[Rfam]
RNA sequence: AACAUGCUUCCUUAGAUCCAUCUUUGUUUGAUAUCUCUUUGCUGAGUUCUGCUUAUAGAUUUUGUCAUGAGUAGCUCCAGCUAAGAGGGAUCAGCAACUUUACCGUUGCACAGUCAAAGAUGCUUGAGUCAUUGGCAUGUAAGAAUAAUAUACCUUCAUUCUAGUCACUUAUGUUCUGAUAGAAAUGGCUGUACUGUGUGUCAUUUUCUCCUAUCAGAAUUUGGCUGGAGUGUGGACAUU
Number, nucleotide and partner (000 for none) at each position: 001a000002a140003c139004a138005u137006g136007c135008u134009u000010c000011c128012u127013u126014a125015g124016a000017u000018c000019c122020a121021u120022c119023u118024u117025u116026g115027u093028u000029u000030g092031a091032u090033a000034u000035c087036u086037c085038u084039u000040u000041g081042c080043u079044g078045a000046g077047u000048u000049c074050u073051g072052c071053u000054u000055a068056u000057a000058g066059a065060u064061u000062u000063u000064g060065u059066c058067a000068u055069g000070a000071g052072u051073a050074g049075c000076u000077c046078c044079a043080g042081c041082u000083a000084a038085g037086a036087g035088g000089g000090a032091u031092c030093a027094g109095c108096a107097a106098c105099u000100u000101u000102a000103c000104c000105g098106u097107u096108g095109c094110a000111c000112a000113g000114u000115c026116a025117a024118a023119g022120a021121u020122g019123c000124u015125u014126g013127a012128g011129u000130c000131a000132u000133u000134g008135g007136c006137a005138u004139g003140u002141a000142a000143g000144a000145a000146u000147a000148a000149u000150a000151u000152a000153c000154c235155u234156u000157c232158a231159u000160u000161c228162u000163a226164g225165u224166c223167a000168c000169u000170u000171a000172u000173g000174u000175u218176c217177u216178g215179a214180u213181a212182g211183a000184a000185a000186u000187g209188g208189c000190u000191g000192u200193a000194c000195u000196g000197u000198g000199u000200g192201u000202c000203a000204u000205u000206u000207u000208c188209u187210c000211c182212u181213a180214u179215c178216a177217g176218a175219a000220u000221u000222u000223g166224g165225c164226u163227g000228g161229a000230g000231u158232g157233u000234g155235g154236a000237c000238a000239u000240u000